[Rfam]
RNA sequence: AUGCUUACCUGGCAGGAGAGAUACCAUGAUCAGGAAGGUGGUUUUCCCAGGGCGAGGCUCAUCCAUUGCACUCCUGAUGUGCUGACCUCUGUGACUUUCCCAAAUGUGGGAAUCUCGACCACAUAAUUUGUGGUAGUAGGGGACUGUGUUGGUGCUAUCCCCUA
Number, nucleotide and partner (000 for none) at each position: 001a000002u000003g000004c000005u000006u000007a000008c000009c000010u000011g000012g122013c000014a000015g119016g048017a000018g046019a045020g044021a043022u000023a042024c041025c040026a039027u038028g000029a000030u000031c000032a000033g000034g000035a000036a000037g000038g027039u026040g025041g024042u023043u021044u020045u019046c018047c000048c016049a090050g089051g088052g087053c000054g086055a000056g083057g082058c081059u000060c079061a078062u077063c076064c000065a000066u000067u000068g000069c000070a000071c000072u000073c000074c000075u000076g063077a062078u061079g060080u000081g058082c057083u056084g000085a000086c054087c052088u051089c050090u049091g000092u117093g116094a115095c000096u112097u111098u000099c109100c108101c000102a000103a000104a000105u000106g000107u000108g100109g099110g000111a097112a096113u000114c000115u094116c093117g092118a000119c015120c000121a000122c012123a000124u000125a000126a000127u000128u000129u000130g000131u000132g000133g000134u000135a000136g000137u000138a163139g162140g161141g160142g159143a158144c000145u000146g155147u154148g153149u000150u000151g000152g000153u148154g147155c146156u000157a000158u143159c142160c141161c140162c139163u138164a000
A member of the RNA family "U1 spliceosomal RNA" from Bos taurus, 164 nucleotides long.
The family's RNA type in Rfam is spliceosomal small nuclear RNA.
The literature on the family includes a 1997 paper in Nucleic Acids Res by Zwieb, "The uRNA database".
The family's consensus secondary structure is taken from published work.
U1 is a small nuclear RNA (snRNA) component of the spliceosome (involved in pre-mRNA splicing). Its 5' end forms complementary base pairs with the 5' splice junction, thus defining the 5' donor site of an intron.